RNA sequence: CCAAAGGCUCUUUUCAGAGCCACCUACAAUAUCAAAAAAGAGUUGU
Numbered sequence: 001c002c003a004a005a006g007g008c009u010c011u012u013u014u015c016a017g018a019g020c021c022a023c024c025u026a027c028a029a030u031a032u033c034a035a036a037a038a039a040g041a042g043u044u045g046u
Base pairs, nucleotide, nucleotide: 006021007020008019009018010017011016